Shown here is a 126-nucleotide RNA from Myotis brandtii, a member of the family "mir-9193 microRNA precursor family".
Its family is annotated with miRNA-mediated post-transcriptional gene silencing and RISC complex in the Gene Ontology.
Pairs were carried over by alignment from the consensus structure, which was predicted with RNAalifold.

[Rfam]
RNA sequence: CAUGGACUGGUGGGGUCCCUCGGCCUGGCUUGCAGGGAUCGGGCUGAAACCGGCAGCCUGACAUCCCCCAAGGGGUCCUGGAUUGCAGAGGGUGCAGGCAAGGCUGAGGGACCCCACUGGUGCAUG
Numbered sequence: 001c002a003u004g005g006a007c008u009g010g011u012g013g014g015g016u017c018c019c020u021c022g023g024c025c026u027g028g029c030u031u032g033c034a035g036g037g038a039u040c041g042g043g044c045u046g047a048a049a050c051c052g053g054c055a056g057c058c059u060g061a062c063a064u065c066c067c068c069c070a071a072g073g074g075g076u077c078c079u080g081g082a083u084u085g086c087a088g089a090g091g092g093u094g095c096a097g098g099c100a101a102g103g104c105u106g107a108g109g110g111a112c113c114c115c116a117c118u119g120g121u122g123c124a125u126g
Base pairs, nucleotide, nucleotide: 003124004123006121008119009118010117012115013114014113015112016111017110018109019108020107021106022105023104024103025102028099029098030097031096032095033094034093